[Rfam]
RNA sequence: GCGCGGGCCGUGUCAACCGGACGCGACAGGGAUGGUGAACAUCGCGGUUUUUCCGGUUUCUCGCGAUGGCCAACGAAACGGCAGACGAGCGCCCCACCUGUCCGGCUU
Numbered sequence: 001g002c003g004c005g006g007g008c009c010g011u012g013u014c015a016a017c018c019g020g021a022c023g024c025g026a027c028a029g030g031g032a033u034g035g036u037g038a039a040c041a042u043c044g045c046g047g048u049u050u051u052u053c054c055g056g057u058u059u060c061u062c063g064c065g066a067u068g069g070c071c072a073a074c075g076a077a078a079c080g081g082c083a084g085a086c087g088a089g090c091g092c093c094c095c096a097c098c099u100g101u102c103c104g105g106c107u108u
Stems, first nucleotide, its partner, number of pairs: 006107004011023004025102006034093004040068007069082003
A member of the RNA family "Rhizobiales sRNA Atu_At1" from Agrobacterium sp. AGB01, 108 nucleotides long. By type it is a small RNA. The family's consensus secondary structure was predicted with CMfinder. A search with the family's covariance model found it, with a score of 116 bits. For this family Rfam cites "Deep sequencing uncovers numerous small RNAs on all four replicons of the plant pathogen Agrobacterium tumefaciens" (Wilms et al., RNA Biol, 2012).